[Rfam]
RNA sequence: CCUUUGGAGAAGUAUACAAACUAAAGUAGCUAUAUUUGUAUAGUAAAAUAGGCUUCGUUGAAUUGGGAA
Numbered sequence: 001c002c003u004u005u006g007g008a009g010a011a012g013u014a015u016a017c018a019a020a021c022u023a024a025a026g027u028a029g030c031u032a033u034a035u036u037u038g039u040a041u042a043g044u045a046a047a048a049u050a051g052g053c054u055u056c057g058u059u060g061a062a063u064u065g066g067g068a069a
Stems, first nucleotide, its partner, number of pairs: 001067003009056005021051003029044003
This 69-nucleotide RNA from Peptacetobacter hiranonis belongs to the Rfam family "RAGATH-18 RNA". Rfam's curators put it in the seed alignment.